[Rfam]
RNA sequence: AUGAUAACAAGGGGAGAGACUACUUUUUGUAGCGCCGAAGGAGCAAGCAAAGACAAUUGUGAAUCUCUCAGGCAAAAAGACUCUUGUUUGACG
Dot-bracket structure: .....((((((((......((((.....)))).(((((..(((...((..........))....))))).))).......)))))))).....

This 93-nucleotide RNA from Bacillus sp. HNG belongs to the Rfam family "Glycine riboswitch aptamer". The pairing is the family consensus, mapped onto this sequence. Taxonomically the source falls in Bacillus (Bacteria, Bacillati, Bacilli, Caryophanales). A search with the family's covariance model found it, with a score of 72 bits.